[Rfam]
RNA sequence: CGGCCGCUGAUAUGUCUGAUAUUCUUGGGUUAUCUGAUAAUGAUUGUUGUAACUCAAGUAUUAGACGUAUCGACGGCCGG
Numbered sequence: 001c002g003g004c005c006g007c008u009g010a011u012a013u014g015u016c017u018g019a020u021a022u023u024c025u026u027g028g029g030u031u032a033u034c035u036g037a038u039a040a041u042g043a044u045u046g047u048u049g050u051a052a053c054u055c056a057a058g059u060a061u062u063a064g065a066c067g068u069a070u071c072g073a074c075g076g077c078c079g080g
Base pairs, nucleotide, nucleotide: 008072009071010070011069012068013067014066015065016064017063018062019061020060021059022058028054029053030052031051032050033049

A member of the RNA family "mir-50 microRNA precursor family" from Caenorhabditis briggsae, 80 nucleotides long. Rfam's curators put it in the seed alignment. Rfam links the family to the GO terms miRNA-mediated post-transcriptional gene silencing and RISC complex. Lineage of the source: Eukaryota > Metazoa > Ecdysozoa > Rhabditomorpha > Caenorhabditis. The family is grouped with related families in Rfam's "mir-50 clan".